Record summary: Wolbachia sRNA 46: a 146-nucleotide RNA sequence from Chelonia mydas. The source organism's lineage runs through Eukaryota, Opisthokonta, Gnathostomata, Dipnotetrapodomorpha and Chelonia. The base pairs follow the family's consensus structure. By type it is a small RNA.

RNA sequence: GUGUCCUCAAAAAGAAAAGGAGUACUUGUGGCACCUCAGAGACGAACAAAUUUAUUAUAAAUUAUAUAUAUUAUUAUAUAUAAAUUAUUAUAAAUAAAUUUGUUCGUCUCUGAGGUGCCACAAGUACUCCUUUUCUUUUUUCAGAA
Numbered sequence: 001g002u003g004u005c006c007u008c009a010a011a012a013a014g015a016a017a018a019g020g021a022g023u024a025c026u027u028g029u030g031g032c033a034c035c036u037c038a039g040a041g042a043c044g045a046a047c048a049a050a051u052u053u054a055u056u057a058u059a060a061a062u063u064a065u066a067u068a069u070a071u072u073a074u075u076a077u078a079u080a081u082a083a084a085u086u087a088u089u090a091u092a093a094a095u096a097a098a099u100u101u102g103u104u105c106g107u108c109u110c111u112g113a114g115g116u117g118c119c120a121c122a123a124g125u126a127c128u129c130c131u132u133u134u135c136u137u138u139u140u141u142c143a144g145a146a
Base pairs, nucleotide, nucleotide: 011141012140013139014138015137021128022127023126024125025124026123027122028121029120030119031118032117033116034115035114036113037112038111039110040109041108042107043106044105045104046103047102048101049100050099
On this family, see Mayoral et al., Proc Natl Acad Sci U S A 2014: "Wolbachia small noncoding RNAs and their role in cross-kingdom communications".